[Rfam]
Nucleotides: 084
Stems, first nucleotide, its partner, number of pairs: 004081003009076009021064006030057003
Number, partner (000 for none) and nucleotide at each position: 001000a002000c003000u004081c005080u006079u007000g008000u009076c010075g011074a012073g013072a014071g015070c016069u017068c018000u019000g020000g021064c022063u023062g024061u025060g026059a027000u028000u029000u030057g031056c032055g033000u034000u035000u036000u037000u038000a039000c040000a041000a042000u043000g044000a045000a046000a047000a048000u049000u050000c051000c052000u053000u054000u055032c056031g057030c058000a059026u060025c061024a062023c063022a064021g065000u066000c067000u068017g069016a070015g071014u072013u073012c074011u075010u076009g077000c078000u079006g080005a081004g082000c083000g084000u
Description: mir-11 microRNA precursor family: an 84-nucleotide RNA sequence from Ceratitis capitata. The match comes from Rfam's covariance-model search (72 bits). Lineage of the source: Eukaryota > Ecdysozoa > Cyclorrhapha > Schizophora > Ceratitis. Clan: mir-6 clan. Pairs were carried over by alignment from the consensus structure, which was predicted with RNAalifold.